[Rfam]
RNA sequence: UGCUUAUCAAGAGUGGUGGAGGGAAAAGGCCCUGUGAAACCACAGCAACCGGUUGAUCCGAAAGGACGGCGUCAGGUGCUAAAUCCUGCCCAUUGGGUAAAGAUGAGAG
Numbered sequence: 001u002g003c004u005u006a007u008c009a010a011g012a013g014u015g016g017u018g019g020a021g022g023g024a025a026a027a028g029g030c031c032c033u034g035u036g037a038a039a040c041c042a043c044a045g046c047a048a049c050c051g052g053u054u055g056a057u058c059c060g061a062a063a064g065g066a067c068g069g070c071g072u073c074a075g076g077u078g079c080u081a082a083a084u085c086c087u088g089c090c091c092a093u094u095g096g097g098u099a100a101a102g103a104u105g106a107g108a109g
Base pairs, nucleotide, nucleotide: 001109003107004106005105006104007103008102013043014042015041016040017039021032022031023030027087028086029085044080045079046078047077049076050075051073052072053071084100089097090096091095
The record is a 109-nucleotide RNA sequence from Geotalea daltonii, which matches "SAM riboswitch aptamer (S box leader)" in Rfam. The family's consensus secondary structure is taken from published work. Rfam describes the family as follows. The SAM riboswitch is found upstream of a number of genes which code for proteins involved in methionine or cysteine biosynthesis in Gram-positive bacteria. NCBI's taxonomy places the organism under Bacteria, Thermodesulfobacteriota, Desulfuromonadia, Geobacteraceae, Geotalea daltonii.